Overview: Rfam assigns this 566-nucleotide part of an RNA from Furfurilactobacillus rossiae to the family "Bacterial large subunit ribosomal RNA". Gene Ontology terms of the family: ribosome and structural constituent of ribosome. The organism belongs to Furfurilactobacillus rossiae, within Bacteria. It scores 2926 bits against the family's covariance model.
RNA sequence: UAUAAAGGGCGCACGGUGGAUGCCUUGGCACUAGGAGCCGAUGAAGGACGGGACUAACACCGAUAUGCUUCGGGGAGCUGUAAGUAAGCUUUGAUCCGGAGAUUUCCGAAUGGGGAAACCCAAUCAGUUUAACCGCUGAUUAUCACUAGGGGAAUACAUACUCUAGUUGAAGGUAGACGUUGUGAACUGAAACAUCUAAGUAGCAACAGGAGCAGAAAGAAAAAUCGAUUCCCUAAGUAGCGGCGAGCGAACGGGGAACAGCCCAAACCAAGCUGCUUGCAGUUUGGGGUUGUAGGACUGAACAUUUGAGUUACCAAAGACCUUGAUAGUCGAAGACGUUGGGAAACGUCGCCAUAGGGUGUGAGAGCCACGUAGACGAAAUCAAAGUCCCUCAGUUCAGGAUCCUGAGUACGGCGGAGCACGUGAAAUUCCGUCGGAAUUUGCGGGGACCAUCCCGUAAGGCUAAAUACUCCCUAGUGACCGAUAGUGGACCAGUACCGUGAGGGAAAGGUGAAAAGCACCCCGGAAGGGGAGUGAAAUAGUUCCUGAAACCGUGUGCCUACAAG
Numbered sequence: 001u002a003u004a005a006a007g008g009g010c011g012c013a014c015g016g017u018g019g020a021u022g023c024c025u026u027g028g029c030a031c032u033a034g035g036a037g038c039c040g041a042u043g044a045a046g047g048a049c050g051g052g053a054c055u056a057a058c059a060c061c062g063a064u065a066u067g068c069u070u071c072g073g074g075g076a077g078c079u080g081u082a083a084g085u086a087a088g089c090u091u092u093g094a095u096c097c098g099g100a101g102a103u104u105u106c107c108g109a110a111u112g113g114g115g116a117a118a119c120c121c122a123a124u125c126a127g128u129u130u131a132a133c134c135g136c137u138g139a140u141u142a143u144c145a146c147u148a149g150g151g152g153a154a155u156a157c158a159u160a161c162u163c164u165a166g167u168u169g170a171a172g173g174u175a176g177a178c179g180u181u182g183u184g185a186a187c188u189g190a191a192a193c194a195u196c197u198a199a200g201u202a203g204c205a206a207c208a209g210g211a212g213c214a215g216a217a218a219g220a221a222a223a224a225u226c227g228a229u230u231c232c233c234u235a236a237g238u239a240g241c242g243g244c245g246a247g248c249g250a251a252c253g254g255g256g257a258a259c260a261g262c263c264c265a266a267a268c269c270a271a272g273c274u275g276c277u278u279g280c281a282g283u284u285u286g287g288g289g290u291u292g293u294a295g296g297a298c299u300g301a302a303c304a305u306u307u308g309a310g311u312u313a314c315c316a317a318a319g320a321c322c323u324u325g326a327u328a329g330u331c332g333a334a335g336a337c338g339u340u341g342g343g344a345a346a347c348g349u350c351g352c353c354a355u356a357g358g359g360u361g362u363g364a365g366a367g368c369c370a371c372g373u374a375g376a377c378g379a380a381a382u383c384a385a386a387g388u389c390c391c392u393c394a395g396u397u398c399a400g401g402a403u404c405c406u407g408a409g410u411a412c413g414g415c416g417g418a419g420c421a422c423g424u425g426a427a428a429u430u431c432c433g434u435c436g437g438a439a440u441u442u443g444c445g446g447g448g449a450c451c452a453u454c455c456c457g458u459a460a461g462g463c464u465a466a467a468u469a470c471u472c473c474c475u476a477g478u479g480a481c482c483g484a485u486a487g488u489g490g491a492c493c494a495g496u497a498c499c500g501u502g503a504g505g506g507a508a509a510g511g512u513g514a515a516a517a518g519c520a521c522c523c524c525g526g527a528a529g530g531g532g533a534g535u536g537a538a539a540u541a542g543u544u545c546c547u548g549a550a551a552c553c554g555u556g557u558g559c560c561u562a563c564a565a566g
Stems, first nucleotide, its partner, number of pairs: 007561010022546001023511002027482002029479007036471002038173002046107003049062003068101007077089003112121003122141007143170002145167007178209001179207005189196002219226002229467001230257005240248002260464004268287007294406003298400005316392001319389003323385005329377003335350005353357001359371003412436008443458005498505002521532004
Dot-bracket structure: ......((((((((((.....(((..(((((((((((((......((((((........))).....(((((((..(((.......))).....)))))))...)))....(((....)))(((((((......))))))).(((((((((.........))))))).)).))....((((((.....((....))......))))).).........((....))..((((((.....((.....))....)))))..((((....(((((((......)))))))......(((.(((((.............(..(((.(((((.(((...(((((......)))))..(...).(((.......)))...)))...))))).)))..)...)))))...))).....((((((((.........))))))))......(((((......)))))..))))..)..)).))))))).))...............((....))....)).........((((....)))).............).....)))))))))).....